[Rfam]
RNA sequence: CGGCUUCCUGCUUCAACAGUGCUUGGAUGGAACCUG
Number, nucleotide and partner (000 for none) at each position: 001c036002g035003g034004c000005u032006u031007c030008c029009u000010g028011c000012u027013u026014c025015a024016a023017c021018a000019g000020u000021g017022c000023u016024u015025g014026g013027a012028u010029g008030g007031a006032a005033c000034c003035u002036g001
Rfam assigns this 36-nucleotide RNA from Carlito syrichta to the family "Iron response element I". The base pairs follow the family's consensus structure, which is taken from published work. Lineage of the source: Eukaryota > Bilateria > Amniota > Euarchontoglires > Carlito. By type it is a cis-regulatory element.